[Rfam]
RNA sequence: GGUGAUGAAUGAUGCCGUACCAGUACUCACAGCGGACCCGGGGGCAGUACCCGGCGGCUCCACCAAAAGCCCCGAUUUUCGGGGCCUCUGACGGGGCCGAACCAGGAUAGACGUGUGCGGAACGACGGUAUUUUUGCCCGGCCUGAAAACGCCGUUAAACUGUUCAAAACCUACAAAUGCCAACGAUAACGAGGCAUUUGCGAUUGCUGCGUAA
Dot-bracket structure: (((((.........((((.........(((.(((...(((((.......)))))(((((((...............................)))))))............)))))).......)))).....)))))((((........))))............................................................